[Rfam]
RNA sequence: GGGUAUCCGCCAUACGUACUUCGUAUAAUCCCACUGAUACGGUGUGGGAGUCUCUACCUGGAACCGUAAACUCCAGAUUACGAAGAGUUAAGUGCACUGC
Numbered sequence: 001g002g003g004u005a006u007c008c009g010c011c012a013u014a015c016g017u018a019c020u021u022c023g024u025a026u027a028a029u030c031c032c033a034c035u036g037a038u039a040c041g042g043u044g045u046g047g048g049a050g051u052c053u054c055u056a057c058c059u060g061g062a063a064c065c066g067u068a069a070a071c072u073c074c075a076g077a078u079u080a081c082g083a084a085g086a087g088u089u090a091a092g093u094g095c096a097c098u099g100c
Stems, first nucleotide, its partner, number of pairs: 019085007029049006058076005
Dot-bracket structure: ..................(((((((...((((((.........))))))........(((((.........)))))..)))))))...............